A member of the RNA family "Plastid-psbA-1 3UTR RNA" from Papaver somniferum, 94 nucleotides long. For this family Rfam cites "Retrograde signaling in plants: A critical review focusing on the GUN pathway and beyond" (Richter et al., Plant Commun, 2023). About the family: Plastid psbA-1 is a non-coding RNA (ncRNA) present in plastids. It was identified in inverted repeat sequences in the 3 prime untranslate region (3UTR) of photosystem II quinone-binding protein (psbA). The match comes from Rfam's covariance-model search (79 bits). The base pairs follow the family's consensus structure, which was predicted with LocARNA. Lineage of the source: Eukaryota > Streptophytina > Mesangiospermae > Ranunculales > Papaver. The family's RNA type in Rfam is cis-regulatory element.
[Rfam]
RNA sequence: UUGAAGCUCCAUCCACAAACGGAUAAGAAGCGUUGAAGUUGAAGGAGCAAUACCGACCCUCUUGAUAGAAUAAGAGGGUCGGUAUUGCUCCUUC
Numbered sequence: 001u002u003g004a005a006g007c008u009c010c011a012u013c014c015a016c017a018a019a020c021g022g023a024u025a026a027g028a029a030g031c032g033u034u035g036a037a038g039u040u041g042a043a044g045g046a047g048c049a050a051u052a053c054c055g056a057c058c059c060u061c062u063u064g065a066u067a068g069a070a071u072a073a074g075a076g077g078g079u080c081g082g083u084a085u086u087g088c089u090c091c092u093u094c
Base pairs, nucleotide, nucleotide: 008023009022010021012019041094042093043092044091045090046089047088048087049086050085051084052083053082055080056079057078059076060075061074062073063072